[Rfam]
RNA sequence: AAAAACUUGUAGUGAUACAAGCCUGAGACAGGAGAAGUCAGCAGAAGCCGUAGUAGUGAAGACAGCUAGUGAAAGUUAGACAGAGCGAAGGGC
Numbered sequence: 001a002a003a004a005a006c007u008u009g010u011a012g013u014g015a016u017a018c019a020a021g022c023c024u025g026a027g028a029c030a031g032g033a034g035a036a037g038u039c040a041g042c043a044g045a046a047g048c049c050g051u052a053g054u055a056g057u058g059a060a061g062a063c064a065g066c067u068a069g070u071g072a073a074a075g076u077u078a079g080a081c082a083g084a085g086c087g088a089a090g091g092g093c
Stems, first nucleotide, its partner, number of pairs: 002024001006021006038045002047093003056086002066079003
RNA: Group II catalytic intron D1-D4-1